A member of the RNA family "Histone 3' UTR stem-loop" from Microctonus hyperodae, 46 nucleotides long. The mRNAs of metazoan histone genes lack a poly-A tail. 3' end processing occurs at a site between a highly conserved stem-loop (modelled by this family) and a purine rich region around 20 nts downstream (the histone downstream element, or HDE). The stem-loop is bound by a 31 kDa stem-loop binding protein (SLBP - also termed the histone hairpin binding protein, or HBP). The base pairs follow the family's consensus structure, which is taken from published work. Rfam links the family to the GO term mRNA 3'-end processing by stem-loop binding and cleavage.

RNA sequence: AAAACGGCCCUUUUCAGGGCCACUAAAUAUUUUUAAUGUGAAAUAA
Numbered sequence: 001a002a003a004a005c006g007g008c009c010c011u012u013u014u015c016a017g018g019g020c021c022a023c024u025a026a027a028u029a030u031u032u033u034u035a036a037u038g039u040g041a042a043a044u045a046a
Stems, first nucleotide, its partner, number of pairs: 006021006